Rfam assigns this 62-nucleotide sequence from Erinaceus europaeus to the family "U7 small nuclear RNA". Taxonomically the source falls in Erinaceus (Eukaryota, Chordata, Gnathostomata, Laurasiatheria). The base pairs follow the family's consensus structure, which was predicted with PFOLD. A search with the family's covariance model found it, with a score of 53 bits. For this family Rfam cites "3' end processing of mouse histone pre-mRNA: evidence for additional base-pairing between U7 snRNA and pre-mRNA" (Spycher et al., Nucleic Acids Res, 1994).

[Rfam]
RNA sequence: GAGUGUGACAUCUCUUUUAGAAUUUGUCUAGCAGGUCUUCUUGUCUCUACCAGAAUCCCCCU
Dot-bracket structure: .................................((..((((.((....)).))))..))...